The family of this 107-nucleotide RNA from Cuscuta europaea is "Small nucleolar RNA Z107/R87".
On this family, see Chen et al., Nucleic Acids Res 2003: "The high diversity of snoRNAs in plants: identification and comparative study of 120 snoRNA genes from Oryza sativa".
The match comes from Rfam's covariance-model search (82 bits).
Its family is annotated with nucleolus and RNA processing in the Gene Ontology.
The organism belongs to Cuscuta subgen. Cuscuta, within Eukaryota.
By type it is a C/D-box small nucleolar RNA.
Pairs were carried over by alignment from the consensus structure, which was predicted with RNAfold.

Nucleotides: 107
Base pairs, nucleotide, nucleotide: 001107002106003105004104005103006102
Number, partner (000 for none) and nucleotide at each position: 001107g002106a003105u004104c005103g006102c007000a008000a009000u010000g011000a012000u013000g014000a015000c016000u017000c018000g019000c020000a021000a022000u023000a024000u025000u026000c027000a028000a029000g030000c031000u032000c033000a034000a035000c036000a037000g038000a039000c040000c041000g042000g043000a044000a045000u046000g047000c048000a049000g050000g051000c052000u053000u054000c055000u056000g057000c058000u059000a060000u061000a062000u063000u064000u065000a066000g067000u068000a069000u070000a071000a072000u073000c074000a075000u076000g077000c078000g079000u080000g081000u082000c083000g084000a085000g086000u087000a088000u089000c090000c091000c092000g093000c094000u095000g096000a097000a098000c099000u100000g101000a102006g103005u104004g105003a106002u107001c